[Rfam]
Rfam assigns this 93-nucleotide RNA sequence from Coxiella burnetii to the family "t44 RNA". A reference for the family is Tjaden et al. (2002), "Transcriptome analysis of Escherichia coli using high-density oligonucleotide probe arrays", Nucleic Acids Res. By type it is a small RNA.
RNA sequence: AUAAAAGUGCGGCAAAAUACACACACUUAUCGGCACAUGAUCCCGGGUGCCCUGUUUCGACGGGUCGGGUCAUGGGGUAGGUGGAGGUUUAAC
Numbered sequence: 001a002u003a004a005a006a007g008u009g010c011g012g013c014a015a016a017a018u019a020c021a022c023a024c025a026c027u028u029a030u031c032g033g034c035a036c037a038u039g040a041u042c043c044c045g046g047g048u049g050c051c052c053u054g055u056u057u058c059g060a061c062g063g064g065u066c067g068g069g070u071c072a073u074g075g076g077g078u079a080g081g082u083g084g085a086g087g088u089u090u091a092a093c
Base pairs, nucleotide, nucleotide: 024083025082026081027080028079029078030077031076036074037073038072039071040070041069042068043067049065050064051063052062
The sequence is in the family's curated seed alignment. Taxonomically the source falls in Coxiella burnetii (Bacteria, Pseudomonadota, Gammaproteobacteria, Coxiellaceae).